Rfam assigns this 281-nucleotide sequence from Candidatus Nitrososphaera gargensis to the family "Archaeal RNase P".
Rfam classes the family as a ribozyme.
For this family Rfam cites "Ribonuclease P: unity and diversity in a tRNA processing ribozyme" (Frank and Pace, Annu Rev Biochem, 1998).
The family's consensus secondary structure is taken from published work.
Ribonuclease P (RNase P) is a ubiquitous endoribonuclease, found in archaea, bacteria and eukarya as well as chloroplasts and mitochondria. Its best characterised activity is the generation of mature 5'-ends of tRNAs by cleaving the 5'-leader elements of precursor-tRNAs.
Lineage of the source: Archaea > Nitrososphaerota > Nitrososphaeraceae > Nitrososphaera > Candidatus Nitrososphaera gargensis.
[Rfam]
RNA sequence: GCGAGCCAGUGGGCGGGUCACUCGAAAGAGAGGAAACUCCUCCCUCACUGCAGGCACCCGAAUUAGCGAUAAUUAGCCGGAGACGGCUGGCGACGGAACAGACAAGAGAUCCAGUCAGGGCGCACACGGUGAUGGCGAAUAGCCUGAGGUUCCUGAUACUGGAAUGAAACUGCCGACCCGGGUGGAGCAAGGCCAAACAGAGCCCAAGUCCCUGCAACAGCUCAGGUUGGCUGCUCAGCGGAAUCCCGCUUAGAACAGAAGGAGGGUUACUGCUGGCACGC
Numbered sequence: 001g002c003g004a005g006c007c008a009g010u011g012g013g014c015g016g017g018u019c020a021c022u023c024g025a026a027a028g029a030g031a032g033g034a035a036a037c038u039c040c041u042c043c044c045u046c047a048c049u050g051c052a053g054g055c056a057c058c059c060g061a062a063u064u065a066g067c068g069a070u071a072a073u074u075a076g077c078c079g080g081a082g083a084c085g086g087c088u089g090g091c092g093a094c095g096g097a098a099c100a101g102a103c104a105a106g107a108g109a110u111c112c113a114g115u116c117a118g119g120g121c122g123c124a125c126a127c128g129g130u131g132a133u134g135g136c137g138a139a140u141a142g143c144c145u146g147a148g149g150u151u152c153c154u155g156a157u158a159c160u161g162g163a164a165u166g167a168a169a170c171u172g173c174c175g176a177c178c179c180g181g182g183u184g185g186a187g188c189a190a191g192g193c194c195a196a197a198c199a200g201a202g203c204c205c206a207a208g209u210c211c212c213u214g215c216a217a218c219a220g221c222u223c224a225g226g227u228u229g230g231c232u233g234c235u236c237a238g239c240g241g242a243a244u245c246c247c248g249c250u251u252a253g254a255a256c257a258g259a260a261g262g263a264g265g266g267u268u269a270c271u272g273c274u275g276g277c278a279c280g281c
Stems, first nucleotide, its partner, number of pairs: 001281003005277005011270001012250006021030003035268003039265005044187003049216006056183005061074005075088005089178002094175003110163003114157006134144002191232004200223004